The record is a 76-nucleotide sequence from Gorilla gorilla, which matches "mir-1290 microRNA precursor family" in Rfam. Rfam 15.1 lists 68 matches to the family in 28 species. It scores 84 bits against the family's covariance model.
RNA sequence: UGGCAUCAUGUUAGCACUCAAAAAGUUUUGGAUUUUGGAGCAUUUCAGAUUUCAGAUUUUUGAACUAAGGAUGCUG
Numbered sequence: 001u002g003g004c005a006u007c008a009u010g011u012u013a014g015c016a017c018u019c020a021a022a023a024a025g026u027u028u029u030g031g032a033u034u035u036u037g038g039a040g041c042a043u044u045u046c047a048g049a050u051u052u053c054a055g056a057u058u059u060u061u062g063a064a065c066u067a068a069g070g071a072u073g074c075u076g
Base pairs, nucleotide, nucleotide: 001076002075003074004073005072006071007070011068012067013066014065018063019062020061021060022059023058024057027056028055029054030053031052032051034049035048036047037046038045039044
Dot-bracket structure: (((((((...((((...(((((((..((((((.((((((....)))))).))))))))))))).)))).)))))))